This 135-nucleotide RNA sequence from Bacillus mesophilus belongs to the Rfam family "ylbH leader".
This family is a putative regulatory RNA structure that is found upstream of the ylbH gene in B. subtilis and related low GC Gram-positive bacteria.
By type it is a cis-regulatory leader.
The match comes from Rfam's covariance-model search (105 bits).
On this family, see Barrick et al., Proc Natl Acad Sci U S A 2004: "New RNA motifs suggest an expanded scope for riboswitches in bacterial genetic control".
The pairing is the family consensus, mapped onto this sequence.
[Rfam]
RNA sequence: ACAAAAAAAACCCUGCAGUUUUUCGUUCUGCAGGGUCCUUCUAUUUCUUAAAAGCAAGCUUUUAAGAGUAAGAAGGCAAAGGGAGAGGAGAAACCGGAGGAAGAACUUAUGGGGAAACGUAAGUCUUCUCCGCGG
Numbered sequence: 001a002c003a004a005a006a007a008a009a010a011c012c013c014u015g016c017a018g019u020u021u022u023u024c025g026u027u028c029u030g031c032a033g034g035g036u037c038c039u040u041c042u043a044u045u046u047c048u049u050a051a052a053a054g055c056a057a058g059c060u061u062u063u064a065a066g067a068g069u070a071a072g073a074a075g076g077c078a079a080a081g082g083g084a085g086a087g088g089a090g091a092a093a094c095c096g097g098a099g100g101a102a103g104a105a106c107u108u109a110u111g112g113g114g115a116a117a118c119g120u121a122a123g124u125c126u127u128c129u130c131c132g133c134g135g
Stems, first nucleotide, its partner, number of pairs: 011035008036083005049070002095132004100128004105124005